[Rfam]
RNA sequence: GGUGGUUCUCGGGUAAUGCACCCCGGAAUUGGGCUCCCUCCUCUCUGAUUCCAUGUGUAUCACCCAAGAAGCGCA
Numbered sequence: 001g002g003u004g005g006u007u008c009u010c011g012g013g014u015a016a017u018g019c020a021c022c023c024c025g026g027a028a029u030u031g032g033g034c035u036c037c038c039u040c041c042u043c044u045c046u047g048a049u050u051c052c053a054u055g056u057g058u059a060u061c062a063c064c065c066a067a068g069a070a071g072c073g074c075a
Base pairs, nucleotide, nucleotide: 002074003073006070007069008068009067011065012064013063014062016060017059019057020056021055025052026051027050028049029048030047031046032045033044
Rfam assigns this 75-nucleotide RNA sequence from Myotis lucifugus to the family "mir-9223 microRNA precursor family". A search with the family's covariance model found it, with a score of 65 bits. Rfam links the family to the GO terms RISC complex and miRNA-mediated post-transcriptional gene silencing.